F6 TB sRNA: a 56-nucleotide sequence from Lentzea albidocapillata. On this family, see Arnvig and Young, Mol Microbiol 2009: "Identification of small RNAs in Mycobacterium tuberculosis". A search with the family's covariance model found it, with a score of 61 bits. Rfam 15.1 lists 310 matches to the family in 304 species. The base pairs follow the family's consensus structure, which is taken from published work. It is annotated as a small RNA.

RNA sequence: CUGUUGACCUCGCGGUGCUGUCGGACCCCCGACCUGGCAGCACCGCGAGGUUUCUU
Numbered sequence: 001c002u003g004u005u006g007a008c009c010u011c012g013c014g015g016u017g018c019u020g021u022c023g024g025a026c027c028c029c030c031g032a033c034c035u036g037g038c039a040g041c042a043c044c045g046c047g048a049g050g051u052u053u054c055u056u
Stems, first nucleotide, its partner, number of pairs: 003054001007051016